[Rfam]
RNA sequence: AGCUAGUUUGAGCGUAGUGAGUUAUCUCAAUUGGUUGUUCCCAGUCAGCUACAGAUGGAACUCCUUGUUGUCUUUCCCCCAUUCUCACUAGCACACUUAGCUAGCAUUUU
Numbered sequence: 001a002g003c004u005a006g007u008u009u010g011a012g013c014g015u016a017g018u019g020a021g022u023u024a025u026c027u028c029a030a031u032u033g034g035u036u037g038u039u040c041c042c043a044g045u046c047a048g049c050u051a052c053a054g055a056u057g058g059a060a061c062u063c064c065u066u067g068u069u070g071u072c073u074u075u076c077c078c079c080c081a082u083u084c085u086c087a088c089u090a091g092c093a094c095a096c097u098u099a100g101c102u103a104g105c106a107u108u109u110u
Stems, first nucleotide, its partner, number of pairs: 002105007010098002014094002016089006045070001047068001
The family of this 110-nucleotide RNA from Pan troglodytes is "Y RNA". The source organism's lineage runs through Eukaryota, Bilateria, Tetrapoda, Primates and Pan. The family's consensus secondary structure is taken from published work. For this family Rfam cites "Conserved features of Y RNAs: a comparison of experimentally derived secondary structures" (Teunissen et al., Nucleic Acids Res, 2000). Rfam classes the family as a non-coding RNA gene. Rfam describes the family as follows. Y RNAs are components of the Ro ribonucleoprotein particle (Ro RNP), in association with Ro60 and La proteins.